The family of this 266-nucleotide RNA from Mesorhizobium japonicum is "Mesorhizobail RNA 15".
The base pairs follow the family's consensus structure, which was predicted with RNAfold.
The literature on the family includes a 2017 paper in Front Microbiol by Fuli et al., "A Genome-Wide Prediction and Identification of Intergenic Small RNAs by Comparative Analysis in Mesorhizobium huakuii 7653R".
It is one of the family's seed sequences.
About the family: Existence predicted via genome wide comparisons with 4 related strains. Analysed further by deep sequencing and Northern blot under various stress conditions. Widely expressed, accumulated heavily under most of the induction conditions, suggesting function in multiple cellular processes.
By type it is a small RNA.

RNA sequence: CAGCAUCGGUUGCCGACAGGAAAGGGGCCAUCUUGGCCCCUUUUUCGUGGGCGGUGGUGUAGCCGUGCGGCUCGUGAAGGAACGCCGCGGGACCGCUCCUUUGCCCGAAGCCUUUCCGGAGCUUGCUGCCAAAGGAACCGCAUCGCCGCCAAUCUCGCACUUGCACAAACUUAUAUUGCACUGCAGUAUGGGUCGGGGCGGGAAUGCGAGCCGGGUUCGGACAUGUACCGCCGUGCCCUUUCGCAUGCCAAUGCGAAGGGAUCGGC
Numbered sequence: 001c002a003g004c005a006u007c008g009g010u011u012g013c014c015g016a017c018a019g020g021a022a023a024g025g026g027g028c029c030a031u032c033u034u035g036g037c038c039c040c041u042u043u044u045u046c047g048u049g050g051g052c053g054g055u056g057g058u059g060u061a062g063c064c065g066u067g068c069g070g071c072u073c074g075u076g077a078a079g080g081a082a083c084g085c086c087g088c089g090g091g092a093c094c095g096c097u098c099c100u101u102u103g104c105c106c107g108a109a110g111c112c113u114u115u116c117c118g119g120a121g122c123u124u125g126c127u128g129c130c131a132a133a134g135g136a137a138c139c140g141c142a143u144c145g146c147c148g149c150c151a152a153u154c155u156c157g158c159a160c161u162u163g164c165a166c167a168a169a170c171u172u173a174u175a176u177u178g179c180a181c182u183g184c185a186g187u188a189u190g191g192g193u194c195g196g197g198g199c200g201g202g203a204a205u206g207c208g209a210g211c212c213g214g215g216u217u218c219g220g221a222c223a224u225g226u227a228c229c230g231c232c233g234u235g236c237c238c239u240u241u242c243g244c245a246u247g248c249c250a251a252u253g254c255g256a257a258g259g260g261a262u263c264g265g266c
Stems, first nucleotide, its partner, number of pairs: 001059002004056005011049003015046002021043010063089001065088001068087003072081002095229001097227001103111002114137004118130002120127002139225002143221002148216003154210006160202005166196001169193011230266004236259002240257007